[Rfam]
RNA sequence: ACACACGAAGGGAGGUGGUUCGGCAGAUGUAUGAAUACCGGACGCGUGAGGUGACUGCGGGCUAGCAGCCCGGCGUCGCAUCUCGAUUUCGGCGCCGGACCAGCACGUGAGAGCUGCGUGCAGCCGGCCCCAAUCCCAAGCAGUCACCCGACCCGCGAGCCGCCGGUACGUCCGGCCGGCUUCCGCCCGUCUCGUACGGGAGGAGACCUGGCUCGCGGGUCGUCUGCG
Numbered sequence: 001a002c003a004c005a006c007g008a009a010g011g012g013a014g015g016u017g018g019u020u021c022g023g024c025a026g027a028u029g030u031a032u033g034a035a036u037a038c039c040g041g042a043c044g045c046g047u048g049a050g051g052u053g054a055c056u057g058c059g060g061g062c063u064a065g066c067a068g069c070c071c072g073g074c075g076u077c078g079c080a081u082c083u084c085g086a087u088u089u090c091g092g093c094g095c096c097g098g099a100c101c102a103g104c105a106c107g108u109g110a111g112a113g114c115u116g117c118g119u120g121c122a123g124c125c126g127g128c129c130c131c132a133a134u135c136c137c138a139a140g141c142a143g144u145c146a147c148c149c150g151a152c153c154c155g156c157g158a159g160c161c162g163c164c165g166g167u168a169c170g171u172c173c174g175g176c177c178g179g180c181u182u183c184c185g186c187c188c189g190u191c192u193c194g195u196a197c198g199g200g201a202g203g204a205g206a207c208c209u210g211g212c213u214c215g216c217g218g219g220u221c222g223u224c225u226g227c228g
Base pairs, nucleotide, nucleotide: 015058016057017056018055019054060129061128062127063126065124066123068121069120071118072115073114074113149222150221151220152219153218154217155216156215157214158213159212160211161210162180163179164178165177166176167175
The record is a 228-nucleotide sequence, which matches "Actinobacteria sRNA Ms_IGR-5" in Rfam. The family's RNA type in Rfam is small RNA.